[Rfam]
RNA sequence: AGUUCUGGGUCGCCUUCGGGGGCGUCCCGGGAGCCGGGGAACCAACUCACCUGGGGUGAAUCCCUCGCAAGGCGCCGCGCAAGCGGCGAGGAGCGAAGGUAGGGCUAAGUCGUGCCCGAACCCGUCAGCUCACCCGGUAGGCGUACGACACGCAAGGG
Numbered sequence: 001a002g003u004u005c006u007g008g009g010u011c012g013c014c015u016u017c018g019g020g021g022g023c024g025u026c027c028c029g030g031g032a033g034c035c036g037g038g039g040a041a042c043c044a045a046c047u048c049a050c051c052u053g054g055g056g057u058g059a060a061u062c063c064c065u066c067g068c069a070a071g072g073c074g075c076c077g078c079g080c081a082a083g084c085g086g087c088g089a090g091g092a093g094c095g096a097a098g099g100u101a102g103g104g105c106u107a108a109g110u111c112g113u114g115c116c117c118g119a120a121c122c123c124g125u126c127a128g129c130u131c132a133c134c135c136g137g138u139a140g141g142c143g144u145a146c147g148a149c150a151c152g153c154a155a156g157g158g
Base pairs, nucleotide, nucleotide: 003032004031005030006029007028008027009026033138034137035136036135037134038133043053044052054123055122056121062099063098065096066095067094068093102117103116104115105114
c-di-AMP riboswitch aptamer (ydaO/yuaA leader): a 158-nucleotide sequence from Nocardioides szechwanensis. Taxonomically the source falls in Nocardioides (Bacteria, Bacillati, Actinomycetes, Nocardioidaceae). A search with the family's covariance model found it, with a score of 60 bits.